Annotation:
Shown here is an 88-nucleotide RNA sequence from Orthoflavivirus powassanense, a member of the family "Tick-borne Flavivirus exoribonuclease-resistant RNA element". Pairs were carried over by alignment from the consensus structure, which was predicted with LocARNA.
RNA sequence: AGGGGGUGAUGUGGCAGCGCACCACGACAUCGUGACGGGAAGAGGUCGUCCCCCACGCAUCAUCUCUCUAGGGCAUUUUCGUGAGACC
Numbered sequence: 001a002g003g004g005g006g007u008g009a010u011g012u013g014g015c016a017g018c019g020c021a022c023c024a025c026g027a028c029a030u031c032g033u034g035a036c037g038g039g040a041a042g043a044g045g046u047c048g049u050c051c052c053c054c055a056c057g058c059a060u061c062a063u064c065u066c067u068c069u070a071g072g073g074c075a076u077u078u079u080c081g082u083g084a085g086a087c088c
Base pairs, nucleotide, nucleotide: 002067003066004065005064006063007062008061009060010059011058012057013056020034021033022032024030037053038052039051

About this RNA:
The source organism's lineage runs through Viruses, Orthornavirae, Kitrinoviricota, Flaviviridae and Powassan virus. The exoribonuclease-resistant RNA elements (xrRNA) are described throughout all groups of flaviviruses. The sequence is in the family's curated seed alignment. The literature on the family includes a 2012 paper in RNA by Moon et al., "A noncoding RNA produced by arthropod-borne flaviviruses inhibits the cellular exoribonuclease XRN1 and alters host mRNA stability".